RNA sequence: GCCCAAAGUCGCACGUGCCUGUGGGCGUCCCCCGGUCCUCGGAAUGGCGAGGCAACCGGGACGGUACCCGGGGAGUAACGAACCCGGUCGGAUGAGCGGCCAACCGCACAGUCCGAGGACGCCUUGAAGCAACGACGGUGCGGGCCUUU
Numbered sequence: 001g002c003c004c005a006a007a008g009u010c011g012c013a014c015g016u017g018c019c020u021g022u023g024g025g026c027g028u029c030c031c032c033c034g035g036u037c038c039u040c041g042g043a044a045u046g047g048c049g050a051g052g053c054a055a056c057c058g059g060g061a062c063g064g065u066a067c068c069c070g071g072g073g074a075g076u077a078a079c080g081a082a083c084c085c086g087g088u089c090g091g092a093u094g095a096g097c098g099g100c101c102a103a104c105c106g107c108a109c110a111g112u113c114c115g116a117g118g119a120c121g122c123c124u125u126g127a128a129g130c131a132a133c134g135a136c137g138g139u140g141c142g143g144g145c146c147u148u149u
Base pairs, nucleotide, nucleotide: 001145002144003143004142008136009135010134011133016131017130018129023124024123025122026121027120028119029118030117031060032059033058034057035056037052038051039050040049041048068087069086070085071084072083088116089115090114091113094109096107097106098105099104
Alphaproteobacterial sRNA ar45: a 149-nucleotide sequence from Pseudaminobacter soli. Pairs were carried over by alignment from the consensus structure. A reference for the family is del Val et al. (2012), "A survey of sRNA families in alpha-proteobacteria", RNA Biol. NCBI's taxonomy places the organism under Bacteria, Pseudomonadota, Alphaproteobacteria, Hyphomicrobiales, Pseudaminobacter. The match comes from Rfam's covariance-model search (157 bits). By type it is a small RNA.